[Rfam]
RNA sequence: UUCUUAUCAAGAGAGGUGGAGGGACUGACCCGGCGAAGCCUCGGCAACCAGCAUAUUCAUGCACGGUGCCAAUUUCAGAUGGGAUUUUUAUUCCGAAGAUAAGAG
Numbered sequence: 001u002u003c004u005u006a007u008c009a010a011g012a013g014a015g016g017u018g019g020a021g022g023g024a025c026u027g028a029c030c031c032g033g034c035g036a037a038g039c040c041u042c043g044g045c046a047a048c049c050a051g052c053a054u055a056u057u058c059a060u061g062c063a064c065g066g067u068g069c070c071a072a073u074u075u076c077a078g079a080u081g082g083g084a085u086u087u088u089u090a091u092u093c094c095g096a097a098g099a100u101a102a103g104a105g
Stems, first nucleotide, its partner, number of pairs: 001105008013042005021031003025078004043070004048066002051062004074097001081094004
RNA: SAM riboswitch aptamer (S box leader)
Organism: Exobacillus caeni